[Rfam]
RNA: Guanidine-I riboswitch aptamer
RNA sequence: CAGAUAGGUUUCUAGGGUUCCGAUUUAAUGUCCUGGGCUGGCUCAGCGUUAAAUGGCUGGACCGAGAGAAACCGCCAGUUUUCUGGUACACGGCGGGAUAAAAGCCCGGGAGAA
Numbered sequence: 001c002a003g004a005u006a007g008g009u010u011u012c013u014a015g016g017g018u019u020c021c022g023a024u025u026u027a028a029u030g031u032c033c034u035g036g037g038c039u040g041g042c043u044c045a046g047c048g049u050u051a052a053a054u055g056g057c058u059g060g061a062c063c064g065a066g067a068g069a070a071a072c073c074g075c076c077a078g079u080u081u082u083c084u085g086g087u088a089c090a091c092g093g094c095g096g097g098a099u100a101a102a103a104g105c106c107c108g109g110g111a112g113a114a
Base pairs, nucleotide, nucleotide: 007073008072009071010070011069012068015063016062020060021059022057023054024053025052026051027050028049029048030047031046074087075086076085077084078083089109091112095107096106097105